Notes:
The record is a 127-nucleotide sequence from Tetrahymena elliotti, which matches "Tetrahymena snoRNA TtnuHACA24" in Rfam. The literature on the family includes a 2012 paper in Nucleic Acids Res by Andersen and Nielsen, "Experimental identification and analysis of macronuclear non-coding RNAs from the ciliate Tetrahymena thermophila". Rfam classes the family as an H/ACA-box small nucleolar RNA.

RNA sequence: AGUCUAUAUAUCCCGAGUGCAUAGAAAUACAUAACUUUGUACCGUUUACAAUAUAGAUAAAGAAGAGCGAAGAACCUUAAUUCUCUUACUGUCUUCAUUGGUAAGCGAAUCCAUUCUUCCAACAGCA
Numbered sequence: 001a002g003u004c005u006a007u008a009u010a011u012c013c014c015g016a017g018u019g020c021a022u023a024g025a026a027a028u029a030c031a032u033a034a035c036u037u038u039g040u041a042c043c044g045u046u047u048a049c050a051a052u053a054u055a056g057a058u059a060a061a062g063a064a065g066a067g068c069g070a071a072g073a074a075c076c077u078u079a080a081u082u083c084u085c086u087u088a089c090u091g092u093c094u095u096c097a098u099u100g101g102u103a104a105g106c107g108a109a110u111c112c113a114u115u116c117u118u119c120c121a122a123c124a125g126c127a
Stems, first nucleotide, its partner, number of pairs: 002058008014044002017042005023036002062119006069112001080110004085105007
Dot-bracket structure: .((((((((....((.(((((.((..........)).)))))))......))))))))...((((((.(..........((((.(((((((.......))))))).)))).).))))))........

It is one of the family's seed sequences.
The family's consensus secondary structure was predicted with mfold.
Rfam links the family to the GO terms nucleolus and RNA processing.